[Rfam]
RNA sequence: UCCUGGUGCCCUUCAUUCCACCGGAAUCCGUCGGCACAGAAACCGGAUUUCAGCGGAAUGAAGCCCCUCAGAGA
Number, nucleotide and partner (000 for none) at each position: 001u000002c000003c000004u000005g000006g000007u000008g000009c000010c000011c063012u062013u061014c060015a059016u058017u000018c000019c055020a000021c053022c000023g051024g050025a049026a048027u000028c046029c045030g044031u000032c000033g000034g000035c000036a000037c000038a000039g000040a000041a000042a000043c000044c030045g029046g028047a000048u026049u025050u024051c023052a000053g021054c000055g019056g000057a000058a016059u015060g014061a013062a012063g011064c000065c000066c000067c000068u000069c000070a000071g000072a000073g000074a000
mir-205 microRNA precursor family: a 74-nucleotide sequence from Menura novaehollandiae. A search with the family's covariance model found it, with a score of 66 bits. The organism belongs to Menura, within Eukaryota. Rfam links the family to the GO terms RISC complex and miRNA-mediated post-transcriptional gene silencing. For this family Rfam cites "Vertebrate microRNA genes" (Lim et al., Science, 2003).